[Rfam]
RNA sequence: GAACCCUGUAAUCGCCGGAAUUGGCCGGCGGGCAUCCACCGUUAGACCUCAAAUCCAACGUCACCAGGGGAA
Numbered sequence: 001g002a003a004c005c006c007u008g009u010a011a012u013c014g015c016c017g018g019a020a021u022u023g024g025c026c027g028g029c030g031g032g033c034a035u036c037c038a039c040c041g042u043u044a045g046a047c048c049u050c051a052a053a054u055c056c057a058a059c060g061u062c063a064c065c066a067g068g069g070g071a072a
Base pairs, nucleotide, nucleotide: 004069005068006067007066008065012031013030014029015028016027017026018025041059042058043057045055046054
The family of this 72-nucleotide sequence is "2dG-II purine riboswitch aptamer". It is one of the family's seed sequences. For this family Rfam cites "Bioinformatic analysis of riboswitch structures uncovers variant classes with altered ligand specificity" (Weinberg et al., Proc Natl Acad Sci U S A, 2017).